[Rfam]
RNA sequence: AUUGAACACUAGGGGUGCUGUUUAAGCUGAGAGAGACGACCUAAAGUCUUAACCCUUCAAUACCUGAUCCGGAUAAUGCCGGCGAAGGGAAGUGGCUGUACUUGCAU
Numbered sequence: 001a002u003u004g005a006a007c008a009c010u011a012g013g014g015g016u017g018c019u020g021u022u023u024a025a026g027c028u029g030a031g032a033g034a035g036a037c038g039a040c041c042u043a044a045a046g047u048c049u050u051a052a053c054c055c056u057u058c059a060a061u062a063c064c065u066g067a068u069c070c071g072g073a074u075a076a077u078g079c080c081g082g083c084g085a086a087g088g089g090a091a092g093u094g095g096c097u098g099u100a101c102u103u104g105c106a107u
Stems, first nucleotide, its partner, number of pairs: 007094004011056004017027003034049004063088003069082004
TPP riboswitch aptamer (THI element): a 107-nucleotide sequence from Paenibacillus foliorum. Pairs were carried over by alignment from the consensus structure, which is taken from published work. On this family, see Kulshina et al., RNA 2010: "Thermodynamic analysis of ligand binding and ligand binding-induced tertiary structure formation by the thiamine pyrophosphate riboswitch". The match comes from Rfam's covariance-model search (70 bits).